[Rfam]
RNA: Yersinia sRNA 224
Organism: Yersinia ruckeri
RNA sequence: GAGAUUAAUAACCCAGUGCGCGCAACGGUGAAAACCGGCAGACCAUCAAGACGCCGUUAAUACAUCCUUGUCGGCUUGUCCGCGCUAUCUCUGGCGCGGACGCUUG
Numbered sequence: 001g002a003g004a005u006u007a008a009u010a011a012c013c014c015a016g017u018g019c020g021c022g023c024a025a026c027g028g029u030g031a032a033a034a035c036c037g038g039c040a041g042a043c044c045a046u047c048a049a050g051a052c053g054c055c056g057u058u059a060a061u062a063c064a065u066c067c068u069u070g071u072c073g074g075c076u077u078g079u080c081c082g083c084g085c086u087a088u089c090u091c092u093g094g095c096g097c098g099g100a101c102g103c104u105u106g
Stems, first nucleotide, its partner, number of pairs: 013106001015104004021027002030077002041066002046062001051057002080099008